This 174-nucleotide RNA from Merdimmobilis hominis belongs to the Rfam family "Lysine riboswitch aptamer".
Riboswitches are metabolite binding domains within certain messenger RNAs that serve as precision sensors for their corresponding targets.
The organism belongs to Merdimmobilis, within Bacteria.
Gene Ontology term of the family: lysine biosynthetic process.
The base pairs follow the family's consensus structure, which is taken from published work.

[Rfam]
RNA sequence: GAAUCGGAUAGAGGCCGCGGAUUUCAUCAGUAUCUGUGCACAGGCUGCCAAGCCGUUUGACGGCGCAGUGAAAGGGAAAUUCGCCGAAGGUGCGCCGCCGGCAGCGGCAGCCUGAUCCGGACGUGAAUAAUGUCCGGAUUGUCAUCAUACAUAUGGUGGAGAGCUAUCGGCUAU
Numbered sequence: 001g002a003a004u005c006g007g008a009u010a011g012a013g014g015c016c017g018c019g020g021a022u023u024u025c026a027u028c029a030g031u032a033u034c035u036g037u038g039c040a041c042a043g044g045c046u047g048c049c050a051a052g053c054c055g056u057u058u059g060a061c062g063g064c065g066c067a068g069u070g071a072a073a074g075g076g077a078a079a080u081u082c083g084c085c086g087a088a089g090g091u092g093c094g095c096c097g098c099c100g101g102c103a104g105c106g107g108c109a110g111c112c113u114g115a116u117c118c119g120g121a122c123g124u125g126a127a128u129a130a131u132g133u134c135c136g137g138a139u140u141g142u143c144a145u146c147a148u149a150c151a152u153a154u155g156g157u158g159g160a161g162a163g164c165u166a167u168c169g170g171c172u173a174u
Stems, first nucleotide, its partner, number of pairs: 007168005017084009034068006088113004094108004114140011142159007